[Rfam]
RNA: transfer-messenger RNA
Organism: Pusillimonas sp. T2
Nucleotides: 366
Base pairs, nucleotide, nucleotide: 001362002361003360004359005358006357007356020335021334022333023332024331025330026329027328034322035321036320038319039318040317041316044310045309046308047307048306049066050065051064052063053062055078056077057076058075059074112131113130115128116127117126118125119124133182134181135180136179137178138177140159142157143156144155148195149194150193151192152191153190200226201225203223204222205221210242212240213239214238215237244280245279246278249275250274251273253271255268256267257266259302260301261300262299339355340354341353342352343351
Number, partner (000 for none) and nucleotide at each position: 001362g002361g003360g004359g005358u006357c007356g008000a009000c010000u011000u012000g013000g014000c015000u016000u017000c018000g019000a020335c021334g022333u023332g024331g025330g026329u027328c028000g029000c030000g031000a032000a033000a034322c035321a036320g037000a038319g039318u040317a041316g042000g043000g044310c045309a046308u047307g048306c049066c050065g051064a052063g053062c054000a055078c056077c057076a058075g059074u060000a061000a062053g063052c064051u065050c066049g067000u068000u069000a070000a071000u072000c073000c074059a075058c076057u077056g078055g079000a080000a081000a082000a083000c084000u085000a086000c087000a088000a089000a090000c091000g092000c093000c094000a095000a096000c097000g098000a099000c100000g101000a102000g103000c104000g105000u106000u107000u108000c109000g110000c111000u112131u113130u114000a115128g116127c117126c118125g119124c120000u121000u122000a123000a124119g125118c126117g127116g128115u129000a130113a131112g132000c133182c134181g135180c136179u137178g138177c139000a140159c141000u142157g143156a144155u145000u146000u147000g148195u149194c150193u151192u152191u153190g154000g155144g156143u157142c158000a159140g160000g161000u162000a163000g164000g165000g166000u167000a168000a169000a170000a171000c172000c173000u174000a175000c176000a177138g178137c179136a180135g181134c182133g183000u184000c185000a186000u187000u188000u189000a190153c191152a192151a193150a194149g195148a196000a197000u198000c199000g200226g201225u202000u203223u204222u205221g206000g207000c208000u209000g210242g211000g212240u213239c214238a215237c216000u217000c218000a219000g220000u221205c222204a223203a224000c225201g226200c227000u228000u229000a230000a231000a232000u233000u234000a235000a236000u237215g238214u239213g240212a241000a242210u243000c244280g245279c246278u247000a248000a249275g250274g251273g252000a253271u254000g255268g256267c257266c258000u259302g260301u261300u262299a263000a264000c265000c266257g267256g268255c269000a270000u271253g272000g273251c274250c275249c276000g277000a278246g279245g280244c281000u282000a283000a284000a285000a286000c287000c288000u289000u290000a291000a292000a293000g294000u295000u296000g297000g298000u299262u300261g301260a302259c303000u304000a305000a306048g307047c308046a309045u310044g311000u312000a313000g314000a315000a316041c317040u318039g319038c320036c321035u322034g323000c324000a325000g326000a327000g328027g329026g330025c331024u332023u333022g334021c335020g336000g337000a338000c339355g340354g341353g342352g343351g344000u345000u346000c347000a348000a349000u350000u351343c352342c353341c354340c355339c356007c357006g358005a359004c360003u361002c362001c363000a364000c365000c366000a